[Rfam]
Guanidine-II riboswitch aptamer (mini-ykkC): a 47-nucleotide RNA sequence from Taxus chinensis. The source organism's lineage runs through Eukaryota, Pinopsida, Conifers II, Taxaceae and Taxus. Rfam describes the family as follows. Simpler in structure and has fewer highly conserved nucleotide positions than the ykkC-yxkD leader. For this family Rfam cites "Identification of 22 candidate structured RNAs in bacteria using the CMfinder comparative genomics pipeline" (Weinberg et al., Nucleic Acids Res, 2007). A search with the family's covariance model found it, with a score of 33 bits.

RNA sequence: UCCCCGGGACGUCCCGGGGACGUCACGACGUCCCCGGGACGUCCCGG
Numbered sequence: 001u002c003c004c005c006g007g008g009a010c011g012u013c014c015c016g017g018g019g020a021c022g023u024c025a026c027g028a029c030g031u032c033c034c035c036g037g038g039a040c041g042u043c044c045c046g047g
Base pairs, nucleotide, nucleotide: 001020002019003018004017005016006015007014008013034047035046036045037044038043